[Rfam]
RNA sequence: CUUCACCGAGCCCAGCAGCACCGGCCUUCCCUCGGGGCGGUCCUGUCCGUAGGUCGCCAGCAGCGCCUGGGCCUC
Numbered sequence: 001c002u003u004c005a006c007c008g009a010g011c012c013c014a015g016c017a018g019c020a021c022c023g024g025c026c027u028u029c030c031c032u033c034g035g036g037g038c039g040g041u042c043c044u045g046u047c048c049g050u051a052g053g054u055c056g057c058c059a060g061c062a063g064c065g066c067c068u069g070g071g072c073c074u075c
Stems, first nucleotide, its partner, number of pairs: 015025002031071003038065002043060003047056001049054001
RNA: ASpks TB sRNA
Organism: Streptomyces echinatus